[Rfam]
RNA sequence: GGCUUCAACAUCCCCGCUGGUUGGGCGCCAUAACGCGCAGCGAAUCAGCUGGAGCC
Numbered sequence: 001g002g003c004u005u006c007a008a009c010a011u012c013c014c015c016g017c018u019g020g021u022u023g024g025g026c027g028c029c030a031u032a033a034c035g036c037g038c039a040g041c042g043a044a045u046c047a048g049c050u051g052g053a054g055c056c
Stems, first nucleotide, its partner, number of pairs: 001056007013042001014040001016049007023041001025038004

Rfam assigns this 56-nucleotide RNA to the family "nadA riboswitch". It is annotated as a small RNA. A reference for the family is Huang et al. (2020), "Structure and ligand binding of the ADP-binding domain of the NAD(+) riboswitch", RNA.